RNA sequence: AACAUCCGACAGGGGAGCGCCUGAGACGGCGCUGAGAGUGCGGCUGGGGCGACGGGAGAACCGUCGAGGAGCCCAGGCCGCAGACCCUCCCACCUGAUCCGGGUCAUACCGGCGUAGGGAGUCAGCACAGUGCAGAA
Numbered sequence: 001a002a003c004a005u006c007c008g009a010c011a012g013g014g015g016a017g018c019g020c021c022u023g024a025g026a027c028g029g030c031g032c033u034g035a036g037a038g039u040g041c042g043g044c045u046g047g048g049g050c051g052a053c054g055g056g057a058g059a060a061c062c063g064u065c066g067a068g069g070a071g072c073c074c075a076g077g078c079c080g081c082a083g084a085c086c087c088u089c090c091c092a093c094c095u096g097a098u099c100c101g102g103g104u105c106a107u108a109c110c111g112g113c114g115u116a117g118g119g120a121g122u123c124a125g126c127a128c129a130g131u132g133c134a135g136a137a
Stems, first nucleotide, its partner, number of pairs: 006125001008123003011088004017032005039082007093118004099112004